[Rfam]
RNA sequence: UCGGCUCCGGUUCACGUCUUCGCUCGAAGGCGACCCGGCGGCC
Numbered sequence: 001u002c003g004g005c006u007c008c009g010g011u012u013c014a015c016g017u018c019u020u021c022g023c024u025c026g027a028a029g030g031c032g033a034c035c036c037g038g039c040g041g042c043c
Stems, first nucleotide, its partner, number of pairs: 003043003007038004015032007

The record is a 43-nucleotide RNA from Nocardia aurantiaca, which matches "L31-Actinobacteria ribosomal protein leader" in Rfam. Clan: Ribosomal Protein L31 Leader clan. Taxonomically the source falls in Nocardia (Bacteria, Bacillati, Actinomycetota, Nocardiaceae). It is annotated as a cis-regulatory leader. The family's consensus secondary structure is taken from published work.